Small nucleolar RNA SNORD46: a 103-nucleotide RNA from Alectura lathami. U40 is a C/D box small nucleolar RNA, also known as snoZ153 in plants. For this family Rfam cites "Intron-encoded, antisense small nucleolar RNAs: the characterization of nine novel species points to their direct role as guides for the 2'-O-ribose methylation of rRNAs" (Nicoloso et al., J Mol Biol, 1996). The base pairs follow the family's consensus structure. NCBI's taxonomy places the organism under Eukaryota, Craniata, Tetrapoda, Archelosauria, Alectura. Clan: SNORD46 clan.

[Rfam]
RNA sequence: AUGGGAGUGAUGAAAUGUUCACCUUAGGUAGAUGCAAAGGCCCGUUUUGGUUGUUCACUGCAUCUGCCAAUGCUGGGGUUUGUCAUAGUUACACUGACCACAU
Dot-bracket structure: (((((............................................................................................)).)))